[Rfam]
RNA sequence: UGGCCAAUGAUGACCAGACCACUGCGCAAUCUGAGUUCUGGGAACCAGGUGAUGGAGUGUGCUCUGAGCACGGACUGAGGCCG
Numbered sequence: 001u002g003g004c005c006a007a008u009g010a011u012g013a014c015c016a017g018a019c020c021a022c023u024g025c026g027c028a029a030u031c032u033g034a035g036u037u038c039u040g041g042g043a044a045c046c047a048g049g050u051g052a053u054g055g056a057g058u059g060u061g062c063u064c065u066g067a068g069c070a071c072g073g074a075c076u077g078a079g080g081c082c083g
Stems, first nucleotide, its partner, number of pairs: 002082004038048004
Dot-bracket structure: .((((................................((((...))))..............................)))).
The family of this 83-nucleotide RNA from Ochotona princeps is "small Cajal body-specific RNA 18". From the family's description: scaRNAs are a specific class of small nuclear RNAs which localise to the Cajal bodies and guide the modification of RNA polymerase II transcribed spliceosomal RNAs U1, U2, U4, U5 and U12. The family's consensus secondary structure was predicted with PFOLD.